[Rfam]
RNA sequence: UACUACCAAACCCUAUCUCCACCUCCACAUGGUGAUCGCUGGGAGUUCAUUCUUAAUGAAUAAGUGCAGACGGAGAAGG
Numbered sequence: 001u002a003c004u005a006c007c008a009a010a011c012c013c014u015a016u017c018u019c020c021a022c023c024u025c026c027a028c029a030u031g032g033u034g035a036u037c038g039c040u041g042g043g044a045g046u047u048c049a050u051u052c053u054u055a056a057u058g059a060a061u062a063a064g065u066g067c068a069g070a071c072g073g074a075g076a077a078g079g
Stems, first nucleotide, its partner, number of pairs: 012079003016075001018073002021033003045065003049061004
The record is a 79-nucleotide RNA sequence from Hermetia illucens, which matches "drz-agam-1 ribozyme" in Rfam.